[Rfam]
RNA sequence: CCUGUGGAGUGUUAUAGCAAACGAAAGUAGCCGCGGCGAAAUCGGACACGCUGAAGCAGGAA
Numbered sequence: 001c002c003u004g005u006g007g008a009g010u011g012u013u014a015u016a017g018c019a020a021a022c023g024a025a026a027g028u029a030g031c032c033g034c035g036g037c038g039a040a041a042u043c044g045g046a047c048a049c050g051c052u053g054a055a056g057c058a059g060g061a062a
Base pairs, nucleotide, nucleotide: 001060002059003058004057005056009049010048011047012046013045022044023043024042030037031036
The record is a 62-nucleotide RNA sequence, which matches "RAGATH-18 RNA" in Rfam.
About the family: Actinobacteria, Firmicutes, Fusobacteria, Thermotogae (1 example).
Rfam's curators put it in the seed alignment.
The base pairs follow the family's consensus structure, which is taken from published work.